RNA: Y RNA
RNA sequence: GGUGGUCUGAUGUGGUGAUAUUUACAGCUACUUGAUCACAACUAGUUAACGAUUCCUUUGUCCUUCUCCACCUCCACUGCUUCACUUGACCAGCCUUAA
Numbered sequence: 001g002g003u004g005g006u007c008u009g010a011u012g013u014g015g016u017g018a019u020a021u022u023u024a025c026a027g028c029u030a031c032u033u034g035a036u037c038a039c040a041a042c043u044a045g046u047u048a049a050c051g052a053u054u055c056c057u058u059u060g061u062c063c064u065u066c067u068c069c070a071c072c073u074c075c076a077c078u079g080c081u082u083c084a085c086u087u088g089a090c091c092a093g094c095c096u097u098a099a
Stems, first nucleotide, its partner, number of pairs: 001094001003092005009087002012083001014078004020073001027061002030058001